[Rfam]
Background: The family of this 377-nucleotide RNA from Jeotgalibacillus sp. R-1-5s-1 is "Bacterial RNase P class B". Its Rfam clan is "RNaseP clan". About the family: Ribonuclease P (RNase P) is a ubiquitous endoribonuclease, found in archaea, bacteria and eukarya as well as chloroplasts and mitochondria. Its best characterised activity is the generation of mature 5'-ends of tRNAs by cleaving the 5'-leader elements of precursor-tRNAs. Cellular RNase Ps are ribonucleoproteins. Gene Ontology terms of the family: dimeric ribonuclease P complex, tRNA processing and ribonuclease P activity.

RNA sequence: AAGGCCGGGCAAUUGCUGCAUCAUGCAGAGGAAAGUCCAUGCUCACACGAUGCUGAGAUGCUCGUAGUGUUCGUGCUCCGCGAAAAAAUAAGCGGUGGCAGCUUACAAAUGUAGGCUGACGGCAGAGAGGAUACCUAAGUUCUUUUGAAUAUGGUAUGAAUCUCUUGAAAGUGCCACAGUGACGUAGUUCUGACAGAAAUGUCGGAAGUGGAACGAGGUAAACCCCACGAGUGAGCAACUCAAACAAUGGUAGAGGCACUUUUCCGGAGGAAAUGAACAAAGGAAGGGACCGGUUAUCCGGUAGAUAGAUGAUUGCCGCCUGAGGUACGAGCUUAUAAGCGUUUGCAGUACGCAGGAACAAAACAUGGCUUACAGGC
Numbered sequence: 001a002a003g004g005c006c007g008g009g010c011a012a013u014u015g016c017u018g019c020a021u022c023a024u025g026c027a028g029a030g031g032a033a034a035g036u037c038c039a040u041g042c043u044c045a046c047a048c049g050a051u052g053c054u055g056a057g058a059u060g061c062u063c064g065u066a067g068u069g070u071u072c073g074u075g076c077u078c079c080g081c082g083a084a085a086a087a088a089u090a091a092g093c094g095g096u097g098g099c100a101g102c103u104u105a106c107a108a109a110u111g112u113a114g115g116c117u118g119a120c121g122g123c124a125g126a127g128a129g130g131a132u133a134c135c136u137a138a139g140u141u142c143u144u145u146u147g148a149a150u151a152u153g154g155u156a157u158g159a160a161u162c163u164c165u166u167g168a169a170a171g172u173g174c175c176a177c178a179g180u181g182a183c184g185u186a187g188u189u190c191u192g193a194c195a196g197a198a199a200u201g202u203c204g205g206a207a208g209u210g211g212a213a214c215g216a217g218g219u220a221a222a223c224c225c226c227a228c229g230a231g232u233g234a235g236c237a238a239c240u241c242a243a244a245c246a247a248u249g250g251u252a253g254a255g256g257c258a259c260u261u262u263u264c265c266g267g268a269g270g271a272a273a274u275g276a277a278c279a280a281a282g283g284a285a286g287g288g289a290c291c292g293g294u295u296a297u298c299c300g301g302u303a304g305a306u307a308g309a310u311g312a313u314u315g316c317c318g319c320c321u322g323a324g325g326u327a328c329g330a331g332c333u334u335a336u337a338a339g340c341g342u343u344u345g346c347a348g349u350a351c352g353c354a355g356g357a358a359c360a361a362a363a364c365a366u367g368g369c370u371u372a373c374a375g376g377c
Stems, first nucleotide, its partner, number of pairs: 004377003007373001008317007016028005033371003037368005042235005047065004052061002071230005076097001078095004098120001099118008121225002124165004132156004139150003171223002173219003188207008239255003259288007289302005319356004324351001326350003